[Rfam]
RNA sequence: GGUUAGUUAUACGACUGACGGAAGUGGAAGUAACCACAUGAAGUAUAAUGAUAAUGAGCCGACCGUCUGGGCAAAGAGC
Number, nucleotide and partner (000 for none) at each position: 001g000002g000003u000004u051005a000006g049007u048008u047009a046010u045011a044012c043013g000014a000015c040016u000017g067018a066019c065020g064021g063022a000023a000024g037025u036026g035027g034028a000029a000030g000031u000032a000033a000034c027035c026036a025037c024038a000039u000040g015041a000042a000043g012044u011045a010046u009047a008048a007049u006050g000051a004052u000053a000054a000055u000056g000057a000058g072059c071060c070061g000062a000063c021064c020065g019066u018067c017068u000069g000070g060071g059072c058073a000074a000075a000076g000077a000078g000079c000
Description:
Shown here is a 79-nucleotide RNA from Lactonifactor longoviformis, a member of the family "ZMP/ZTP riboswitch aptamer (pfl RNA motif)". The family's consensus secondary structure is taken from published work.